[Rfam]
RNA sequence: AUUUACGCUUCGCAAUGUGCGACACAGAAACAUUGUAGAUACAAUUACGUUUCACAAUGUACGGCAAAGUAACAUUGUAGUAUUCAAUUUACGCUUCGCAAUGUGCGACACAGAAACAUUGU
Numbered sequence: 001a002u003u004u005a006c007g008c009u010u011c012g013c014a015a016u017g018u019g020c021g022a023c024a025c026a027g028a029a030a031c032a033u034u035g036u037a038g039a040u041a042c043a044a045u046u047a048c049g050u051u052u053c054a055c056a057a058u059g060u061a062c063g064g065c066a067a068a069g070u071a072a073c074a075u076u077g078u079a080g081u082a083u084u085c086a087a088u089u090u091a092c093g094c095u096u097c098g099c100a101a102u103g104u105g106c107g108a109c110a111c112a113g114a115a116a117c118a119u120u121g122u
Base pairs, nucleotide, nucleotide: 006021007020008019012036013035014034015033016032017031018030048063049062050061054078055077056076057075058074059073060072092107093106094105098122099121100120101119102118103117104116
This 122-nucleotide sequence belongs to the Rfam family "Fusobacteriales-1 RNA". The base pairs follow the family's consensus structure, which is taken from published work. It is one of the family's seed sequences. By type it is a cis-regulatory element.